RNA sequence: GAACCAGUCUCGCUUAAUCUCCAAUUCUGGAGAACGGGGGAACCAAAUACGUAAACCGGAAAUACCGGUUUUGGCGUAAUUGAUUUCUUUUUGGGUCAUUGGGGUGAAUUCGAAGGUCAUUGCGCCAUGAGCGAAUGAUUGAGAAAGGGCGGCUCUCUGCGUCCUAACCCGACAGCUAACUCCGUAAGCGUACAAAGAGAGGGCAA
Numbered sequence: 001g002a003a004c005c006a007g008u009c010u011c012g013c014u015u016a017a018u019c020u021c022c023a024a025u026u027c028u029g030g031a032g033a034a035c036g037g038g039g040g041a042a043c044c045a046a047a048u049a050c051g052u053a054a055a056c057c058g059g060a061a062a063u064a065c066c067g068g069u070u071u072u073g074g075c076g077u078a079a080u081u082g083a084u085u086u087c088u089u090u091u092u093g094g095g096u097c098a099u100u101g102g103g104g105u106g107a108a109u110u111c112g113a114a115g116g117u118c119a120u121u122g123c124g125c126c127a128u129g130a131g132c133g134a135a136u137g138a139u140u141g142a143g144a145a146a147g148g149g150c151g152g153c154u155c156u157c158u159g160c161g162u163c164c165u166a167a168c169c170c171g172a173c174a175g176c177u178a179a180c181u182c183c184g185u186a187a188g189c190g191u192a193c194a195a196a197g198a199g200a201g202g203g204c205a206a
Stems, first nucleotide, its partner, number of pairs: 011190004018033005034185006044101002102170003110144002147164004

This 206-nucleotide RNA sequence from Fontibacillus phaseoli belongs to the Rfam family "c-di-AMP riboswitch aptamer (ydaO/yuaA leader)". NCBI's taxonomy places the organism under Bacteria, Bacilli, Caryophanales, Paenibacillaceae, Fontibacillus.